A member of the RNA family "mir-986 microRNA precursor family" from Drosophila rhopaloa, 94 nucleotides long. The organism belongs to Sophophora, within Eukaryota. Pairs were carried over by alignment from the consensus structure, which was predicted with RNAalifold.

[Rfam]
RNA sequence: CCCGAAAUCACCCAUCUCGAAUAGCGUUGUGACUGAGGUAAGUGCGCUCCGAGUUGACUCAGCGGCAACGCUAUUCCAGUUAGGUUGUUUUGGG
Numbered sequence: 001c002c003c004g005a006a007a008u009c010a011c012c013c014a015u016c017u018c019g020a021a022u023a024g025c026g027u028u029g030u031g032a033c034u035g036a037g038g039u040a041a042g043u044g045c046g047c048u049c050c051g052a053g054u055u056g057a058c059u060c061a062g063c064g065g066c067a068a069c070g071c072u073a074u075u076c077c078a079g080u081u082a083g084g085u086u087g088u089u090u091u092g093g094g
Stems, first nucleotide, its partner, number of pairs: 001094008010085003016079002019076007027068004033062005